Record summary:
mir-12 microRNA precursor family: a 115-nucleotide sequence from Musca domestica. A reference for the family is Werren et al. (2010), "Functional and evolutionary insights from the genomes of three parasitoid Nasonia species", Science. Pairs were carried over by alignment from the consensus structure, which was predicted with RNAalifold.
RNA sequence: UCUGUCAGAGUAUUACAUUAGGUACUGGUGUUGAUUUUUUCAAAAAACGUUGUUAUUGUUUUUCUUAUAAUAACAAACAUUUUACCUACCAGUACUUAUGUCAUACUUACAUACA
Numbered sequence: 001u002c003u004g005u006c007a008g009a010g011u012a013u014u015a016c017a018u019u020a021g022g023u024a025c026u027g028g029u030g031u032u033g034a035u036u037u038u039u040u041c042a043a044a045a046a047a048c049g050u051u052g053u054u055a056u057u058g059u060u061u062u063u064c065u066u067a068u069a070a071u072a073a074c075a076a077a078c079a080u081u082u083u084a085c086c087u088a089c090c091a092g093u094a095c096u097u098a099u100g101u102c103a104u105a106c107u108u109a110c111a112u113a114c115a
Stems, first nucleotide, its partner, number of pairs: 001115001003113003009107004015101004021096009